[Rfam]
RNA: F6 TB sRNA
Organism: Pseudonocardiaceae bacterium
RNA sequence: CGGAUGACUCCGUGAUGCUGGCGGACCCCCGACCUGGCAGCAUCACGGAGUUUCCA
Numbered sequence: 001c002g003g004a005u006g007a008c009u010c011c012g013u014g015a016u017g018c019u020g021g022c023g024g025a026c027c028c029c030c031g032a033c034c035u036g037g038c039a040g041c042a043u044c045a046c047g048g049a050g051u052u053u054c055c056a
Stems, first nucleotide, its partner, number of pairs: 002055003007051014022036001